[Rfam]
RNA sequence: CUGGGCUAUGGGGACAUGUACCCCAAAACUUGGUCAGGCAUGCUGGUGGGGGCGUUGUGUGCGCUGGCAGGCGUGCUUACUAUUGCCAUGCCAGUGCCCGUCAUUGUCAACAAU
Numbered sequence: 001c002u003g004g005g006c007u008a009u010g011g012g013g014a015c016a017u018g019u020a021c022c023c024c025a026a027a028a029c030u031u032g033g034u035c036a037g038g039c040a041u042g043c044u045g046g047u048g049g050g051g052g053c054g055u056u057g058u059g060u061g062c063g064c065u066g067g068c069a070g071g072c073g074u075g076c077u078u079a080c081u082a083u084u085g086c087c088a089u090g091c092c093a094g095u096g097c098c099c100g101u102c103a104u105u106g107u108c109a110a111c112a113a114u
Base pairs, nucleotide, nucleotide: 002113004111008107009106010105011104013102014101015100018097019096020095021094037077038076039075040074050062